[Rfam]
RNA sequence: GGUCCAGAGGACCAGCGAACCGCCCUCCGGCGUGCUGGUCCGGCAACCGCGCGACGCGCACGGUGCUCCCGGAGGAAGACCCGCCCCCACACCCGUGGGGGAAGAGCGAGCA
Dot-bracket structure: ((((....(.((((((....((........)).))))))).(((..(((.((.....)).))).)))..........))))..(((((((....)))))))...........
The record is a 112-nucleotide RNA from Oerskovia sp. Root918, which matches "SAM (S-adenosyl methionine) riboswitch aptamer" in Rfam. The base pairs follow the family's consensus structure, which is taken from published work. The organism belongs to Oerskovia, within Bacteria. The match comes from Rfam's covariance-model search (62 bits). Its Rfam clan is "SAM clan".